RNA sequence: GCCUGGAUGACCAUCAGUGGUCUGGGGUGCAGACUUCAAACCUGUAGAUGUCUAGCAACAGAGUGGUUCGUUUCCACCUUUCAGGU
Dot-bracket structure: (((((((.(..(.((((....)))).)(((((.........)))))..(((......)))..((((.......))))).)))))))

Source information:
The record is an 86-nucleotide sequence from Cariama cristata, which matches "Selenocysteine transfer RNA" in Rfam. Rfam links the family to the GO term triplet codon-amino acid adaptor activity. Pairs were carried over by alignment from the consensus structure, which is taken from published work. The organism belongs to Cariama, within Eukaryota. The literature on the family includes a 1997 paper in Nucleic Acids Res by Lowe and Eddy, "tRNAscan-SE: a program for improved detection of transfer RNA genes in genomic sequence".